[Rfam]
RNA: U12 minor spliceosomal RNA
Organism: Gulo gulo
RNA sequence: AUGCGUUAAACUUAUGAGUAAGGAAAAUAACAAUUUGAGGUGACGCCAGAAUCCUCACUGCUAAUGUCAGAUGAAUUUGUGAGUAGACACAGGUUGCCCCUAAGCUGACCUGCCUACUUGGUAGCAUGCCUGGAGUCGUGAUCUGCAUG
Numbered sequence: 001a002u003g004c005g006u007u008a009a010a011c012u013u014a015u016g017a018g019u020a021a022g023g024a025a026a027a028u029a030a031c032a033a034u035u036u037g038a039g040g041u042g043a044c045g046c047c048a049g050a051a052u053c054c055u056c057a058c059u060g061c062u063a064a065u066g067u068c069a070g071a072u073g074a075a076u077u078u079g080u081g082a083g084u085a086g087a088c089a090c091a092g093g094u095u096g097c098c099c100c101u102a103a104g105c106u107g108a109c110c111u112g113c114c115u116a117c118u119u120g121g122u123a124g125c126a127u128g129c130c131u132g133g134a135g136u137c138g139u140g141a142u143c144u145g146c147a148u149g
Base pairs, nucleotide, nucleotide: 004023006021007020008019033052034051035050036049039046054070055069057067058066084149085148088145091144092143093142094141095140096139097138100133101132103131104130106128107127110124111123112122113121